[Rfam]
RNA sequence: GUACCCACGCUUCCUUAUCACUUGUUCGUCACAGUCUGAUUAUAAAGCACUGGACGGAGAACUGAUAAGGGCUUGUGGGUAA
Numbered sequence: 001g002u003a004c005c006c007a008c009g010c011u012u013c014c015u016u017a018u019c020a021c022u023u024g025u026u027c028g029u030c031a032c033a034g035u036c037u038g039a040u041u042a043u044a045a046a047g048c049a050c051u052g053g054a055c056g057g058a059g060a061a062c063u064g065a066u067a068a069g070g071g072c073u074u075g076u077g078g079g080u081a082a
Base pairs, nucleotide, nucleotide: 012071013070014069015068016067017066018065019064020063022061023060025058026057027056030053
RNA: mir-184 microRNA precursor family